The family of this 180-nucleotide RNA from Vibrio sp. 10N.286.49.B3 is "Lysine riboswitch aptamer". The family's consensus secondary structure is taken from published work. For this family Rfam cites "Riboswitches Control Fundamental Biochemical Pathways in Bacillus subtilis and Other Bacteria" (Mandal et al., Cell, 2003). A search with the family's covariance model found it, with a score of 138 bits.
[Rfam]
RNA sequence: UCUUGCCGUAGAGGCGCGAGCAUAAUAAGUAACUAUUAUUGGGGUGAUACCAAUGAGUAAUAGUGAAAGGUAUGGUUGCCGAAGUGAGUUGUAUAUCGAUGCAAUUUGCUGGGGUUGUCACCGAAUAGGGUCAACACUGCCAUAGUCUUAUUUUUUAAACUAUGGAGCGCUACUGUGGGG
Numbered sequence: 001u002c003u004u005g006c007c008g009u010a011g012a013g014g015c016g017c018g019a020g021c022a023u024a025a026u027a028a029g030u031a032a033c034u035a036u037u038a039u040u041g042g043g044g045u046g047a048u049a050c051c052a053a054u055g056a057g058u059a060a061u062a063g064u065g066a067a068a069g070g071u072a073u074g075g076u077u078g079c080c081g082a083a084g085u086g087a088g089u090u091g092u093a094u095a096u097c098g099a100u101g102c103a104a105u106u107u108g109c110u111g112g113g114g115u116u117g118u119c120a121c122c123g124a125a126u127a128g129g130g131u132c133a134a135c136a137c138u139g140c141c142a143u144a145g146u147c148u149u150a151u152u153u154u155u156u157a158a159a160c161u162a163u164g165g166a167g168c169g170c171u172a173c174u175g176u177g178g179g180g
Stems, first nucleotide, its partner, number of pairs: 006175001008173004016079004021074004032064008083110012111138002114135004119130001121128001140165007